Notes
The family of this 142-nucleotide RNA is "RT-14 RNA". Rfam classes the family as a small RNA. It is one of the family's seed sequences.
[Rfam]
RNA sequence: CUCUACCACAUAGUCAGAUGCCGGCAGCCUGAGUGGCUGCCUCCCAGUACAAGGUAGGUAAAGGACUACGUUUCCGCGCCAUAGGCGAAAAACUAAAACAGCGCACACACCGAUAGUAGGAAUAUCCGAAUUCCGUGUGUGC
Numbered sequence: 001c002u003c004u005a006c007c008a009c010a011u012a013g014u015c016a017g018a019u020g021c022c023g024g025c026a027g028c029c030u031g032a033g034u035g036g037c038u039g040c041c042u043c044c045c046a047g048u049a050c051a052a053g054g055u056a057g058g059u060a061a062a063g064g065a066c067u068a069c070g071u072u073u074c075c076g077c078g079c080c081a082u083a084g085g086c087g088a089a090a091a092a093c094u095a096a097a098a099c100a101g102c103g104c105a106c107a108c109a110c111c112g113a114u115a116g117u118a119g120g121a122a123u124a125u126c127c128g129a130a131u132u133c134c135g136u137g138u139g140u141g142c
Base pairs, nucleotide, nucleotide: 003057004056005055006054009053013050014049020044023041024040025039026038027037028036029035077087078086079085080084103142104141105140106139107138108137109136110135112133113132119127120126